Small nucleolar RNA snoR136: a 134-nucleotide RNA sequence from Anisodus acutangulus.

RNA sequence: AUGCUUUGCUUAAUUAAUUAUCUUUUGUGUCACACUUUGUGGUGUGUCACAUUACAAGUGAAGCUAGAAAGAUUGUUCCUCUCGCUAUCCUUUGCUCCUUUCGUGGUGUAUUUGGACGUUGGGGAACUACAUUA
Numbered sequence: 001a002u003g004c005u006u007u008g009c010u011u012a013a014u015u016a017a018u019u020a021u022c023u024u025u026u027g028u029g030u031c032a033c034a035c036u037u038u039g040u041g042g043u044g045u046g047u048c049a050c051a052u053u054a055c056a057a058g059u060g061a062a063g064c065u066a067g068a069a070a071g072a073u074u075g076u077u078c079c080u081c082u083c084g085c086u087a088u089c090c091u092u093u094g095c096u097c098c099u100u101u102c103g104u105g106g107u108g109u110a111u112u113u114g115g116a117c118g119u120u121g122g123g124g125a126a127c128u129a130c131a132u133u134a
Base pairs, nucleotide, nucleotide: 002066003064004063005062008059009058020052026051027050028049029048031046032045033044034043035042036041075127076126077125078124079123080122081121083118084117088116089115090114097106098105
Lineage of the source: Eukaryota > Tracheophyta > asterids > Solanales > Anisodus. Rfam links the family to the GO terms nucleolus and RNA processing. For this family Rfam cites "Mining small RNA sequencing data: a new approach to identify small nucleolar RNAs in Arabidopsis" (Chen and Wu, Nucleic Acids Res, 2009).